Rfam assigns this 177-nucleotide RNA sequence from Streptomyces mobaraensis to the family "Streptomyces sRNA scr5239". Rfam links the family to the GO terms mRNA binding and negative regulation of translation. For this family Rfam cites "Identification of metE as a second target of the sRNA scr5239 in Streptomyces coelicolor" (Vockenhuber et al., PLoS One, 2015). Lineage of the source: Bacteria > Actinomycetota > Actinomycetes > Streptomycetaceae > Streptomyces. By type it is a small RNA.
RNA sequence: GCCCCGCCCUCCCCGCACAGGAGGGCGGCACGAGGCCCGGCGCUCUCUGCCCUGACCGCGCCACGGCCUCCGGUCGGCCGCUCCGGACGCGGGGCUCGCACACCCCGCGGUGUCCGGUCCGGCCGAUAUCAGCUCCGGGCUGCGGUGCCGGCGGGGUCGAGGGUCCCCGUCAGGCGC
Numbered sequence: 001g002c003c004c005c006g007c008c009c010u011c012c013c014c015g016c017a018c019a020g021g022a023g024g025g026c027g028g029c030a031c032g033a034g035g036c037c038c039g040g041c042g043c044u045c046u047c048u049g050c051c052c053u054g055a056c057c058g059c060g061c062c063a064c065g066g067c068c069u070c071c072g073g074u075c076g077g078c079c080g081c082u083c084c085g086g087a088c089g090c091g092g093g094g095c096u097c098g099c100a101c102a103c104c105c106c107g108c109g110g111u112g113u114c115c116g117g118u119c120c121g122g123c124c125g126a127u128a129u130c131a132g133c134u135c136c137g138g139g140c141u142g143c144g145g146u147g148c149c150g151g152c153g154g155g156g157u158c159g160a161g162g163g164u165c166c167c168c169g170u171c172a173g174g175c176g177c
Stems, first nucleotide, its partner, number of pairs: 004028003008024005032070005039062002042059002044055002074126007083117008132146003136142002150171007